[Rfam]
RNA sequence: GAGAUGAUAGUAUGGUAGAAAGAAAGAUUCAUAUUUUCUUUCUACCAUGCUAUCUAGUACUGUCGUUGUACUGUAUAAGGCUUACUGU
Numbered sequence: 001g002a003g004a005u006g007a008u009a010g011u012a013u014g015g016u017a018g019a020a021a022g023a024a025a026g027a028u029u030c031a032u033a034u035u036u037u038c039u040u041u042c043u044a045c046c047a048u049g050c051u052a053u054c055u056a057g058u059a060c061u062g063u064c065g066u067u068g069u070a071c072u073g074u075a076u077a078a079g080g081c082u083u084a085c086u087g088u
Stems, first nucleotide, its partner, number of pairs: 006054021
The record is an 88-nucleotide RNA from Ziziphus jujuba, which matches "Plastid-psbM 3UTR RNA" in Rfam. Plastid psbM is a non-coding RNA (ncRNA) recognised in plastids. It was found in the three prime untranslated region (3UTR) of psbM gene, its 3UTR location suggests a role in transcript maturation. The literature on the family includes a 2023 paper in Plant Commun by Richter et al., "Retrograde signaling in plants: A critical review focusing on the GUN pathway and beyond". It scores 67 bits against the family's covariance model.